[Rfam]
RNA sequence: CAGCAGGAUUUAGACUACAAUAUGGCUGCUAUAUGCUGUGUUGUAGUUCCCCCUGCUCAGAUUAUGGUUAUGUCUUAACUAUACCUGUCUGCUAUCCCCUGUAGCAGCUAGGGAUGCUUGGUUUCAUAGAU
Numbered sequence: 001c002a003g004c005a006g007g008a009u010u011u012a013g014a015c016u017a018c019a020a021u022a023u024g025g026c027u028g029c030u031a032u033a034u035g036c037u038g039u040g041u042u043g044u045a046g047u048u049c050c051c052c053c054u055g056c057u058c059a060g061a062u063u064a065u066g067g068u069u070a071u072g073u074c075u076u077a078a079c080u081a082u083a084c085c086u087g088u089c090u091g092c093u094a095u096c097c098c099c100u101g102u103a104g105c106a107g108c109u110a111g112g113g114a115u116g117c118u119u120g121g122u123u124u125c126a127u128a129g130a131u
Stems, first nucleotide, its partner, number of pairs: 003056005017044010084112004089107004
Rfam assigns this 131-nucleotide RNA sequence from Dipodomys ordii to the family "Small nucleolar RNA SNORA63". Rfam describes the family as follows. E3 belongs to the H/ACA class of snoRNAs and is involved in the processing of eukaryotic pre-rRNA and has regions of complementarity to 18S rRNA. E3 is encoded in introns in the gene for protein synthesis initiation factor 4AII. A search with the family's covariance model found it, with a score of 117 bits. Rfam classes the family as an H/ACA-box small nucleolar RNA. For this family Rfam cites "Three small nucleolar RNAs that are involved in ribosomal RNA precursor processing" (Mishra and Eliceiri, Proc Natl Acad Sci U S A, 1997). The organism belongs to Dipodomys, within Eukaryota. Rfam links the family to the GO terms RNA processing and nucleolus.